[Rfam]
RNA: c-di-GMP-II-GAG riboswitch aptamer
RNA sequence: AUCAGGGGUAGAGGCCGUGAAACCCGCCCGGCAUUUCGGGCGCCGCCAGGGGCGGGCGGAGCCAGUGGCGCGACCGGCUACCACGCGA
Numbered sequence: 001a002u003c004a005g006g007g008g009u010a011g012a013g014g015c016c017g018u019g020a021a022a023c024c025c026g027c028c029c030g031g032c033a034u035u036u037c038g039g040g041c042g043c044c045g046c047c048a049g050g051g052g053c054g055g056g057c058g059g060a061g062c063c064a065g066u067g068g069c070g071c072g073a074c075c076g077g078c079u080a081c082c083a084c085g086c087g088a
Stems, first nucleotide, its partner, number of pairs: 002087001005084001007082005013063003023056007038075002040071005